[Rfam]
RNA sequence: GCUGCGUCCGGCAAUGGAUUUCUGCCUGGCCGUCUCACAGCCGAACCGCCCCAUCCGGGGCUGAUGAUUCCUACCUUCGG
Numbered sequence: 001g002c003u004g005c006g007u008c009c010g011g012c013a014a015u016g017g018a019u020u021u022c023u024g025c026c027u028g029g030c031c032g033u034c035u036c037a038c039a040g041c042c043g044a045a046c047c048g049c050c051c052c053a054u055c056c057g058g059g060g061c062u063g064a065u066g067a068u069u070c071c072u073a074c075c076u077u078c079g080g
Stems, first nucleotide, its partner, number of pairs: 010026004016071003020067002048061004
A member of the RNA family "Fluoride riboswitch aptamer (crcB RNA motif)" from Nitrospirillum viridazoti, 80 nucleotides long. The family's consensus secondary structure is taken from published work. A search with the family's covariance model found it, with a score of 45 bits.